RNA: Small nucleolar RNA SNORD22
Organism: Rhinolophus ferrumequinum
RNA sequence: UCCCGGUGAAGAAACAUUCACAUCUCUUACCUCUUGUCCUCGUCCCAGAGCCUGUAAAGGUGAACCCACUGGGGCUGGUUGGGGGAGAAGAGGCAAGUUUGUUCCAGAAGGAGCUGUCUGAGGGAU
Dot-bracket structure: ((((.....................................................................................................................)))).
Numbered sequence: 001u002c003c004c005g006g007u008g009a010a011g012a013a014a015c016a017u018u019c020a021c022a023u024c025u026c027u028u029a030c031c032u033c034u035u036g037u038c039c040u041c042g043u044c045c046c047a048g049a050g051c052c053u054g055u056a057a058a059g060g061u062g063a064a065c066c067c068a069c070u071g072g073g074g075c076u077g078g079u080u081g082g083g084g085g086a087g088a089a090g091a092g093g094c095a096a097g098u099u100u101g102u103u104c105c106a107g108a109a110g111g112a113g114c115u116g117u118c119u120g121a122g123g124g125a126u
Stems, first nucleotide, its partner, number of pairs: 001125004